[Rfam]
RNA sequence: GAAUCCGCGAAGGGAGAACCGGUCAUACCGGUGCCGAAGGAGCAACCGCCCCGGAAACUCUCAGGCCCAAAGGACCUUUGCGGGUGA
Numbered sequence: 001g002a003a004u005c006c007g008c009g010a011a012g013g014g015a016g017a018a019c020c021g022g023u024c025a026u027a028c029c030g031g032u033g034c035c036g037a038a039g040g041a042g043c044a045a046c047c048g049c050c051c052c053g054g055a056a057a058c059u060c061u062c063a064g065g066c067c068c069a070a071a072g073g074a075c076c077u078u079u080g081c082g083g084g085u086g087a
Base pairs, nucleotide, nucleotide: 006082007081008080009079010078011077012076013075019031020030021029022028033066034065035064036062037061040060041059042058046054047053

Shown here is an 87-nucleotide RNA from Primorskyibacter flagellatus, a member of the family "Glycine riboswitch aptamer". On this family, see Mandal et al., Science 2004: "A glycine-dependent riboswitch that uses cooperative binding to control gene expression". The match comes from Rfam's covariance-model search (59 bits). The organism belongs to Primorskyibacter, within Bacteria. Pairs were carried over by alignment from the consensus structure.